[Rfam]
RNA sequence: CAGCAGGGUAUCUAGGGUUCCGCCUCUUUUCUCCUCCCGGAGGGACUGGUCCAAGAGAUGCCACCGACGGGGCAAAUUCCCUGCCGGGACACGGCGGGGCAAAAUCCCGGGAGAG
Dot-bracket structure: ......((((((..((...((((((((...........)))))..).)).))....)))))).(((.(((((......))))).)))..(.[...(((.......))).)..]..
Numbered sequence: 001c002a003g004c005a006g007g008g009u010a011u012c013u014a015g016g017g018u019u020c021c022g023c024c025u026c027u028u029u030u031c032u033c034c035u036c037c038c039g040g041a042g043g044g045a046c047u048g049g050u051c052c053a054a055g056a057g058a059u060g061c062c063a064c065c066g067a068c069g070g071g072g073c074a075a076a077u078u079c080c081c082u083g084c085c086g087g088g089a090c091a092c093g094g095c096g097g098g099g100c101a102a103a104a105u106c107c108c109g110g111g112a113g114a115g
Stems, first nucleotide, its partner, number of pairs: 007062006015052002020049002022046001023043005064087003068083005090110001092113001096108003